[Rfam]
RNA: Purine riboswitch aptamer
RNA sequence: AGAUAAACUGAUUACAAUAUCUGUAUAAAUUUGACGAUAGGGGUCAAGAGUUUCUACCAAAUCACCGUAAAUGAUUUGACUACAGGAAGUUUAUUUAUUAUU
Numbered sequence: 001a002g003a004u005a006a007a008c009u010g011a012u013u014a015c016a017a018u019a020u021c022u023g024u025a026u027a028a029a030u031u032u033g034a035c036g037a038u039a040g041g042g043g044u045c046a047a048g049a050g051u052u053u054c055u056a057c058c059a060a061a062u063c064a065c066c067g068u069a070a071a072u073g074a075u076u077u078g079a080c081u082a083c084a085g086g087a088a089g090u091u092u093a094u095u096u097a098u099u100a101u102u
Base pairs, nucleotide, nucleotide: 018088020086021085022084023083024082025081030048031047032046033045034044035043058078059077060076061075062074063073064072